[Rfam]
RNA sequence: CCAACGUGGAUAUCCUGUGAGGUCGCUCUCAUGGGCUCUGUCCUCGUGGCGUAUGGGAGCGUAGCGUCUUUCUGGUGCAAUGACGUACAGUCCCGUUCCACAACGUUGGAGAACAUGCAUGUCCCCGGCCUUCAGGUUGGUGUGGAUGGCGUCCUGUAUAUUCCUACAACUUCCCAGAGCCUCUAGGCCCUGACUGGGGAGAAAAACCAUGCAGGAUACAGAU
Numbered sequence: 001c002c003a004a005c006g007u008g009g010a011u012a013u014c015c016u017g018u019g020a021g022g023u024c025g026c027u028c029u030c031a032u033g034g035g036c037u038c039u040g041u042c043c044u045c046g047u048g049g050c051g052u053a054u055g056g057g058a059g060c061g062u063a064g065c066g067u068c069u070u071u072c073u074g075g076u077g078c079a080a081u082g083a084c085g086u087a088c089a090g091u092c093c094c095g096u097u098c099c100a101c102a103a104c105g106u107u108g109g110a111g112a113a114c115a116u117g118c119a120u121g122u123c124c125c126c127g128g129c130c131u132u133c134a135g136g137u138u139g140g141u142g143u144g145g146a147u148g149g150c151g152u153c154c155u156g157u158a159u160a161u162u163c164c165u166a167c168a169a170c171u172u173c174c175c176a177g178a179g180c181c182u183c184u185a186g187g188c189c190c191u192g193a194c195u196g197g198g199g200a201g202a203a204a205a206a207c208c209a210u211g212c213a214g215g216a217u218a219c220a221g222a223u
Base pairs, nucleotide, nucleotide: 001109002108003107004106005105006104007103008043009042010041011040012039014035015034016033019028020027021026046101047100048099049098055094056093057092058091059088061086062085064081153215154214155213156212157211158210159209170201171200172199173198174197175196179188180187181186

Background:
The family of this 223-nucleotide RNA sequence from Aquarana catesbeiana is "Small nucleolar RNA SNORA73 family". Its family is annotated with RNA processing and nucleolus in the Gene Ontology. Rfam describes the family as follows. U17 (SNORA73A and SNORA73B) also known as E1 belongs to the H/ACA class of small nucleolar RNAs (snoRNAs). Vertebrate U17 is intron-encoded and ranges in length from 200-230 nucleotides, longer than most snoRNAs. It is one of the most abundant snoRNAs in human cells and is essential for the cleavage of pre-rRNA within the 5' external transcribed spacer (ETS). The match comes from Rfam's covariance-model search (210 bits). The family has 66 seed sequences and 2,326 matches in Rfam 15.1. The family is grouped with related families in Rfam's "snR30-U17 clan". The source organism's lineage runs through Eukaryota, Bilateria, Amphibia, Ranoidea and Aquarana. The base pairs follow the family's consensus structure, which is taken from published work. The literature on the family includes a 1996 paper in RNA by Enright et al., "5'ETS rRNA processing facilitated by four small RNAs: U14, E3, U17, and U3".